This 128-nucleotide sequence from Podarcis muralis belongs to the Rfam family "Small nucleolar RNA SNORD22". The base pairs follow the family's consensus structure, which was predicted with PFOLD. The organism belongs to Podarcis, within Eukaryota. Gene Ontology terms of the family: RNA processing and nucleolus. A search with the family's covariance model found it, with a score of 113 bits.
RNA sequence: UCCCAAUGAAGAAAUCCUAUUGCGUCUUAUCUUCUGUUUUGGCGCCAGAACCUGCAAAGGUUGAACCCACUGGGGCCAGCAGAGGGGAAAGAUGAAACUCUGCUCCAGAAGGAACUGUCUGAUGGGAC
Numbered sequence: 001u002c003c004c005a006a007u008g009a010a011g012a013a014a015u016c017c018u019a020u021u022g023c024g025u026c027u028u029a030u031c032u033u034c035u036g037u038u039u040u041g042g043c044g045c046c047a048g049a050a051c052c053u054g055c056a057a058a059g060g061u062u063g064a065a066c067c068c069a070c071u072g073g074g075g076c077c078a079g080c081a082g083a084g085g086g087g088a089a090a091g092a093u094g095a096a097a098c099u100c101u102g103c104u105c106c107a108g109a110a111g112g113a114a115c116u117g118u119c120u121g122a123u124g125g126g127a128c
Stems, first nucleotide, its partner, number of pairs: 001127004